RNA sequence: CUCGCGAAAAGGCAAGCCGGCCGCGAGGCCGUGCACGCAAAGUGACGGGUCUCUUGCGAGACGGCCGCACUACCGAA
Numbered sequence: 001c002u003c004g005c006g007a008a009a010a011g012g013c014a015a016g017c018c019g020g021c022c023g024c025g026a027g028g029c030c031g032u033g034c035a036c037g038c039a040a041a042g043u044g045a046c047g048g049g050u051c052u053c054u055u056g057c058g059a060g061a062c063g064g065c066c067g068c069a070c071u072a073c074c075g076a077a
Stems, first nucleotide, its partner, number of pairs: 012038002017033001018031005041071004046067003049062003053058001